This 86-nucleotide RNA sequence from Enterobacteriaceae bacterium RIT714 belongs to the Rfam family "DsrA RNA". About the family: DsrA RNA regulates both transcription, by overcoming transcriptional silencing by the nucleoid-associated H-NS protein, and translation, by promoting efficient translation of the stress sigma factor, RpoS. These two activities of DsrA can be separated by mutation: the first of three stem-loops of the 85 nucleotide RNA is necessary for RpoS translation but not for anti-H-NS action, while the second stem-loop is essential for antisilencing and less critical for RpoS translation. The third stem-loop, which behaves as a transcription terminator, can be substituted by the trp transcription terminator without loss of either DsrA function. The sequence of the first stem-loop of DsrA is complementary with the upstream leader portion of RpoS messenger RNA, suggesting that pairing of DsrA with the RpoS message might be important for translational regulation.
RNA sequence: CCCACAUCAGAUUUCCUGGUGUAACGAAUUUAUAAGUGCUUCUUGCUUAAGCAAGUUUGAUCCCGGUCACCCCAUGACCGGGAUUU
Numbered sequence: 001c002c003c004a005c006a007u008c009a010g011a012u013u014u015c016c017u018g019g020u021g022u023a024a025c026g027a028a029u030u031u032a033u034a035a036g037u038g039c040u041u042c043u044u045g046c047u048u049a050a051g052c053a054a055g056u057u058u059g060a061u062c063c064c065g066g067u068c069a070c071c072c073c074a075u076g077a078c079c080g081g082g083a084u085u086u
Stems, first nucleotide, its partner, number of pairs: 004022007026058003029054002031051001033049006060084007068076002

Record summary
The organism belongs to Enterobacteriaceae, within Bacteria. A reference for the family is Gottesman (2005), "Micros for microbes: non-coding regulatory RNAs in bacteria", Trends Genet. Rfam links the family to the GO terms positive regulation of translation and mRNA transcription.